[Rfam]
RNA sequence: UCCCUCUCUGGAAGGGGUGAUGUGUCAGCACAAAGCCCAAGAUAAGGACUCUGACCACAUUUGUGUGUGAGGAAACUUGCUGAGUGUUCUGACCUUCCAUGGAGCUGG
Number, nucleotide and partner (000 for none) at each position: 001u000002c000003c000004c000005u000006c000007u000008c000009u099010g098011g097012a096013a095014g094015g093016g000017g000018u000019g000020a000021u000022g000023u000024g000025u000026c000027a000028g000029c000030a000031c000032a000033a000034a000035g000036c000037c000038c000039a000040a000041g000042a000043u000044a000045a000046g000047g000048a000049c000050u000051c000052u000053g000054a000055c000056c000057a000058c000059a000060u000061u000062u000063g000064u000065g000066u000067g000068u000069g000070a000071g000072g000073a000074a000075a000076c000077u000078u000079g000080c000081u000082g000083a000084g000085u000086g000087u000088u000089c000090u000091g000092a000093c015094c014095u013096u012097c011098c010099a009100u000101g000102g000103a000104g000105c000106u000107g000108g000
Source information:
The family of this 108-nucleotide RNA from Heliornis fulica is "Small nucleolar RNA SNORD124". Its family is annotated with nucleolus and RNA processing in the Gene Ontology. The base pairs follow the family's consensus structure, which was predicted with WAR. The family's RNA type in Rfam is C/D-box small nucleolar RNA. A reference for the family is Yang et al. (2006), "snoSeeker: an advanced computational package for screening of guide and orphan snoRNA genes in the human genome", Nucleic Acids Res.